[Rfam]
RNA sequence: GCACCAAAUUUACUCCGAACCUGGCAAUCUAAGGCUUAAUAAGCUAUGAUUUCCAGGUCGUUAGGGUAUAUAAGGGAAACCUGUAUGCCUCCCAUUUGGAAAGGAGUAGCGUCAUUUAGCUA
Numbered sequence: 001g002c003a004c005c006a007a008a009u010u011u012a013c014u015c016c017g018a019a020c021c022u023g024g025c026a027a028u029c030u031a032a033g034g035c036u037u038a039a040u041a042a043g044c045u046a047u048g049a050u051u052u053c054c055a056g057g058u059c060g061u062u063a064g065g066g067u068a069u070a071u072a073a074g075g076g077a078a079a080c081c082u083g084u085a086u087g088c089c090u091c092c093c094a095u096u097u098g099g100a101a102a103g104g105a106g107u108a109g110c111g112u113c114a115u116u117u118a119g120c121u122a
Stems, first nucleotide, its partner, number of pairs: 003116001011108006019058006026051004033045004064090008073082003091099002
Dot-bracket structure: ..(.......((((((..((((((.((((...((((.....))))..)))).)))))).....((((((((.(((....)))))))))))((.....))...)))))).......)......